Shown here is a 72-nucleotide sequence from Oscillibacter sp. CAG:155, a member of the family "pemK RNA". The family's RNA type in Rfam is cis-regulatory element. Pairs were carried over by alignment from the consensus structure, which is taken from published work. The organism belongs to Oscillibacter, within Bacteria.
[Rfam]
RNA sequence: AUAAUGGUACUCUAUGUUCAUCCAGAAAUGGUGGCAUCUCGGAGCGAUCCUCGGAGGGGUGGGAUUCCCGGA
Numbered sequence: 001a002u003a004a005u006g007g008u009a010c011u012c013u014a015u016g017u018u019c020a021u022c023c024a025g026a027a028a029u030g031g032u033g034g035c036a037u038c039u040c041g042g043a044g045c046g047a048u049c050c051u052c053g054g055a056g057g058g059g060u061g062g063g064a065u066u067c068c069c070g071g072a
Stems, first nucleotide, its partner, number of pairs: 014037004038056003042052003057069003